[Rfam]
Glycine riboswitch aptamer: a 105-nucleotide RNA sequence from Nakamurella antarctica. A reference for the family is Mandal et al. (2004), "A glycine-dependent riboswitch that uses cooperative binding to control gene expression", Science.
RNA sequence: CGACUCCCUGCGGGAGAGUCCACUCGGUGAAAAUGGUCCGCCGAUCGGCGCCGAAGGAGCAAUUCCUCCCCGGAAUCUCUCAGGCCCACAAAUCGCAGGGAAGAG
Numbered sequence: 001c002g003a004c005u006c007c008c009u010g011c012g013g014g015a016g017a018g019u020c021c022a023c024u025c026g027g028u029g030a031a032a033a034u035g036g037u038c039c040g041c042c043g044a045u046c047g048g049c050g051c052c053g054a055a056g057g058a059g060c061a062a063u064u065c066c067u068c069c070c071c072g073g074a075a076u077c078u079c080u081c082a083g084g085c086c087c088a089c090a091a092a093u094c095g096c097a098g099g100g101a102a103g104a105g
Stems, first nucleotide, its partner, number of pairs: 006100008020048002050085003053081002057079003063073002

Lineage of the source: Bacteria > Actinomycetota > Actinomycetes > Nakamurellales > Nakamurella.